[Rfam]
RNA sequence: AGCAAAGGCACUCUGUGACAUUUGAUUUAAUUAUAAAAUGCUACAAUUUGUUACUUUGCUAAAUAAACAAACAUAUUCAGAAAAUUUAAAUUCCGUGAGUGACUUUUCCCGCUUACGAAAUUUCUGAAAUGUUUUACAGUUA
Number, nucleotide and partner (000 for none) at each position: 001a000002g059003c058004a057005a056006a055007g054008g000009c000010a051011c050012u000013c000014u045015g044016u043017g042018a000019c040020a039021u038022u037023u036024g000025a034026u000027u000028u000029a000030a000031u000032u000033a000034u025035a000036a023037a022038a021039u020040g019041c000042u017043a016044c015045a014046a000047u000048u000049u000050g011051u010052u000053a000054c007055u006056u005057u004058g003059c002060u000061a000062a000063a000064u000065a141066a140067a000068c000069a135070a134071a133072c000073a132074u131075a130076u000077u127078c126079a000080g124081a123082a122083a121084a000085u119086u118087u117088a000089a000090a000091u000092u000093c000094c000095g000096u000097g000098a000099g000100u000101g000102a000103c000104u000105u000106u000107u000108c000109c000110c000111g000112c000113u000114u000115a000116c000117g087118a086119a085120a000121u083122u082123u081124c080125u000126g078127a077128a000129a000130u075131g074132u073133u071134u070135u069136a000137c000138a000139g000140u066141u065142a000